[Rfam]
RNA sequence: GCAAUUUCUUUGGUUAUCUAGCUGUAUGAGUACCGCGUUUAGUCGUCAUAAAGCUGGACGACCGAAGUAAUGGCCG
Numbered sequence: 001g002c003a004a005u006u007u008c009u010u011u012g013g014u015u016a017u018c019u020a021g022c023u024g025u026a027u028g029a030g031u032a033c034c035g036c037g038u039u040u041a042g043u044c045g046u047c048a049u050a051a052a053g054c055u056g057g058a059c060g061a062c063c064g065a066a067g068u069a070a071u072g073g074c075c076g
Base pairs, nucleotide, nucleotide: 001074002073005070006069008067009066010065011064012063013062014061015060017058018057019056020055021054022053023052025050026049027048028047029046
About this RNA
A member of the RNA family "mir-9/mir-79 microRNA precursor family" from Ascaris suum, 76 nucleotides long. Rfam's curators put it in the seed alignment. Pairs were carried over by alignment from the consensus structure, which was predicted with RNAalifold. Rfam links the family to the GO terms RISC complex and miRNA-mediated post-transcriptional gene silencing.